[Rfam]
RNA sequence: UUGCAGCCAAUUAAGCUGACUGUGCUCUUUUCCUCCAUGGAGGUCUGGCGCGCAAUGGCUGCAGACUCCUGGGUAGUGUAUGCGGCCUGUUGCCUGCACGGGUUGCCCUGAGGGACCUUGGAGACAGCC
Numbered sequence: 001u002u003g004c005a006g007c008c009a010a011u012u013a014a015g016c017u018g019a020c021u022g023u024g025c026u027c028u029u030u031u032c033c034u035c036c037a038u039g040g041a042g043g044u045c046u047g048g049c050g051c052g053c054a055a056u057g058g059c060u061g062c063a064g065a066c067u068c069c070u071g072g073g074u075a076g077u078g079u080a081u082g083c084g085g086c087c088u089g090u091u092g093c094c095u096g097c098a099c100g101g102g103u104u105g106c107c108c109u110g111a112g113g114g115a116c117c118u119u120g121g122a123g124a125c126a127g128c129c
Stems, first nucleotide, its partner, number of pairs: 002054003020048003025043002028040001072117003083105006
Dot-bracket structure: .(((...............(((..((.(...........).))..)))...))).................(((........((((((...........)))))).........)))............